Rfam assigns this 127-nucleotide RNA sequence from Haemaphysalis longicornis to the family "U11 spliceosomal RNA". It is annotated as a spliceosomal small nuclear RNA.
[Rfam]
RNA sequence: AAAAAGGGCAUUCGGCGCUACUGCCGUGCGUCGCGUUAUGCGCGGCGUACAGAAUCGCUAUCAAGAGAUUCUGAAUGUAUAAUUUUUUUAACUGGGGCAGUUGGUUGCCGUUUGCACCGGCGCCCCU
Numbered sequence: 001a002a003a004a005a006g007g008g009c010a011u012u013c014g015g016c017g018c019u020a021c022u023g024c025c026g027u028g029c030g031u032c033g034c035g036u037u038a039u040g041c042g043c044g045g046c047g048u049a050c051a052g053a054a055u056c057g058c059u060a061u062c063a064a065g066a067g068a069u070u071c072u073g074a075a076u077g078u079a080u081a082a083u084u085u086u087u088u089u090a091a092c093u094g095g096g097g098c099a100g101u102u103g104g105u106u107g108c109c110g111u112u113u114g115c116a117c118c119g120g121c122g123c124c125c126c127u
Stems, first nucleotide, its partner, number of pairs: 008078005013026005027049009050073007095125004100121005106116003